RNA sequence: UCUAGUAGCUAAAGGGUAAUCAAAAUUUUACAUAUCAGAACCAUAACUGAUUAAGUACUAGAUCUUUCAUAGAAGUUAUGAGUGCUGAUCAUAAUAUUAGUAAAUAUAAGUUAAAGAAAAUUAAACUGUAAAAAGUUGAUUUCAAUAACUUAAAAAGCUAAUUGCAGAAGUUUAAGAUAAACAAAUUAUGGAGAAAUGCUAAUCAUAUCAGCACUAUGAUUAGUAUUUU
Numbered sequence: 001u002c003u004a005g006u007a008g009c010u011a012a013a014g015g016g017u018a019a020u021c022a023a024a025a026u027u028u029u030a031c032a033u034a035u036c037a038g039a040a041c042c043a044u045a046a047c048u049g050a051u052u053a054a055g056u057a058c059u060a061g062a063u064c065u066u067u068c069a070u071a072g073a074a075g076u077u078a079u080g081a082g083u084g085c086u087g088a089u090c091a092u093a094a095u096a097u098u099a100g101u102a103a104a105u106a107u108a109a110g111u112u113a114a115a116g117a118a119a120a121u122u123a124a125a126c127u128g129u130a131a132a133a134a135g136u137u138g139a140u141u142u143c144a145a146u147a148a149c150u151u152a153a154a155a156a157g158c159u160a161a162u163u164g165c166a167g168a169a170g171u172u173u174a175a176g177a178u179a180a181a182c183a184a185a186u187u188a189u190g191g192a193g194a195a196a197u198g199c200u201a202a203u204c205a206u207a208u209c210a211g212c213a214c215u216a217u218g219a220u221u222a223g224u225a226u227u228u229u
Base pairs, nucleotide, nucleotide: 001062002061003060004059005058006057007056034051035050036049037048038047041191042190043189044188045187064170065169066168067167075095076094077093078092079091080090081089082214083213084212085211086210087209088208096162097161098160099159100158101157195227196226197225198224199223200222201221202220203219204218205217206216207215

A member of the RNA family "FuFi-1 RNA", 229 nucleotides long.
Rfam's curators put it in the seed alignment.